[Rfam]
RNA: Guanidine-I riboswitch aptamer
Organism: Caldimonas brevitalea
RNA sequence: UGAAAUGAGCGCUAGGGUUCCGGUCGCGGCUGCCGAUGUUUCGGUCGCCGCGGCGCCUGGUCCAAGAGCGGUCGGCCUUCGGCGGCGGUUUACCGUCUGAGGCUCCACGGCGGGACAAAAGCCCGGGAGGU
Numbered sequence: 001u002g003a004a005a006u007g008a009g010c011g012c013u014a015g016g017g018u019u020c021c022g023g024u025c026g027c028g029g030c031u032g033c034c035g036a037u038g039u040u041u042c043g044g045u046c047g048c049c050g051c052g053g054c055g056c057c058u059g060g061u062c063c064a065a066g067a068g069c070g071g072u073c074g075g076c077c078u079u080c081g082g083c084g085g086c087g088g089u090u091u092a093c094c095g096u097c098u099g100a101g102g103c104u105c106c107a108c109g110g111c112g113g114g115a116c117a118a119a120a121g122c123c124c125g126g127g128a129g130g131u
Stems, first nucleotide, its partner, number of pairs: 007073002010070003015063002020060002022057001023054008074104006081097005106126001108129001112124003